[Rfam]
RNA sequence: CCAUCUUGAUCGCUGAAUCCGUGUGGAACGGGGGAACCAGAAUUGUAACAAACAUUUUGUUACUAGGGGUGAAUCCUUCAUGAUGAAGGCAGGGUUACUUCUGUACCCGAACCCGACAGCUAACCUCGUAAGCGUUAAGGAGAGGAUGU
Dot-bracket structure: ..........((((...(((....)))((((((....(...........................)(((.....((((.......))))..((((.........))))...))).........)))))).))))...............
Numbered sequence: 001c002c003a004u005c006u007u008g009a010u011c012g013c014u015g016a017a018u019c020c021g022u023g024u025g026g027a028a029c030g031g032g033g034g035a036a037c038c039a040g041a042a043u044u045g046u047a048a049c050a051a052a053c054a055u056u057u058u059g060u061u062a063c064u065a066g067g068g069g070u071g072a073a074u075c076c077u078u079c080a081u082g083a084u085g086a087a088g089g090c091a092g093g094g095u096u097a098c099u100u101c102u103g104u105a106c107c108c109g110a111a112c113c114c115g116a117c118a119g120c121u122a123a124c125c126u127c128g129u130a131a132g133c134g135u136u137a138a139g140g141a142g143a144g145g146a147u148g149u
Stems, first nucleotide, its partner, number of pairs: 011134004018027003028129006038066001067114003075089004092108004
Source information: The record is a 149-nucleotide RNA sequence from Bacillus gobiensis, which matches "c-di-AMP riboswitch aptamer (ydaO/yuaA leader)" in Rfam. The base pairs follow the family's consensus structure.